[Rfam]
RNA: MAT2A 3'UTR stem loop A
Organism: Sphenodon punctatus
Nucleotides: 067
Stems, first nucleotide, its partner, number of pairs: 001067004008059004013054004019047002023043003026034002
Number, partner (000 for none) and nucleotide at each position: 001067g002066g003065c004064u005000u006000u007000u008059u009058u010057c011056c012000u013054c014053a015052g016051a017000c018000c019047u020046g021000u022000u023043g024042g025041u026034g027033u028000c029000g030000a031000u032000u033027a034026c035000a036000g037000a038000g039000a040000a041025g042024c043023u044000u045000u046020c047019a048000g049000g050000c051016u052015c053014u054013g055000g056011g057010g058009g059008a060000a061000a062000g063000a064004g065003g066002c067001c